RNA sequence: UGAAAAAGCUAGGGGUGCCUUGGUGCUGAGAUAGAUUCAAUUCUAACCCUUGUACCUGAACUGGAUAAUACCAGCGUAGGAAAGCAGUGUAUAAAUGUA
Numbered sequence: 001u002g003a004a005a006a007a008g009c010u011a012g013g014g015g016u017g018c019c020u021u022g023g024u025g026c027u028g029a030g031a032u033a034g035a036u037u038c039a040a041u042u043c044u045a046a047c048c049c050u051u052g053u054a055c056c057u058g059a060a061c062u063g064g065a066u067a068a069u070a071c072c073a074g075c076g077u078a079g080g081a082a083a084g085c086a087g088u089g090u091a092u093a094a095a096u097g098u099a
Stems, first nucleotide, its partner, number of pairs: 008085003011050004017026002034042003055080004061074004